Source information:
Termite-flg RNA: a 105-nucleotide RNA sequence.
RNA sequence: AAUUGCUUCGUACCGUCUUCGGAAACACCCUGUGCUAUAGGCGCGAACUGGUCAGGGUUUUCCGGCUGUGUGGUAUGGCUCGGGCAAAGGAUUGCUCGGGUAUUU
Dot-bracket structure: ........((((((((..((((.((.((((((.((((...........)))))))))).))))))....))))))))((((((((........))))))))....
Numbered sequence: 001a002a003u004u005g006c007u008u009c010g011u012a013c014c015g016u017c018u019u020c021g022g023a024a025a026c027a028c029c030c031u032g033u034g035c036u037a038u039a040g041g042c043g044c045g046a047a048c049u050g051g052u053c054a055g056g057g058u059u060u061u062c063c064g065g066c067u068g069u070g071u072g073g074u075a076u077g078g079c080u081c082g083g084g085c086a087a088a089g090g091a092u093u094g095c096u097c098g099g100g101u102a103u104u105u
Stems, first nucleotide, its partner, number of pairs: 009077008019065004024061002027058006034052004078101008